The family of this 143-nucleotide RNA from Microcebus murinus is "Small nucleolar RNA SNORA27". It scores 86 bits against the family's covariance model. ACA27 is a member of the H/ACA class of snoRNA that guide the sites of modification of uridines to pseudouridines.
[Rfam]
RNA sequence: GCCCCCUUGUACACUUUUGCCAAUUCGACUUGAAUGUCUGUUGACGCUGGGGAGUUGGUCAUUCAAGUGCGCAAAGGAAGACCUAUCCUUUUAAAACUCAGGCAAACUGGUGUUUGUCUUGUAUCCUGUCAAAGGAAACAAAU
Numbered sequence: 001g002c003c004c005c006c007u008u009g010u011a012c013a014c015u016u017u018u019g020c021c022a023a024u025u026c027g028a029c030u031u032g033a034a035u036g037u038c039u040g041u042u043g044a045c046g047c048u049g050g051g052g053a054g055u056u057g058g059u060c061a062u063u064c065a066a067g068u069g070c071g072c073a074a075a076g077g078a079a080g081a082c083c084u085a086u087c088c089u090u091u092u093a094a095a096a097c098u099c100a101g102g103c104a105a106a107c108u109g110g111u112g113u114u115u116g117u118c119u120u121g122u123a124u125c126c127u128g129u130c131a132a133a134g135g136a137a138a139c140a141a142a143u
Base pairs, nucleotide, nucleotide: 035073036072037071041066042065043064044063086136087135088134089133090132091131099121100119101118102117103116104115105114106113107112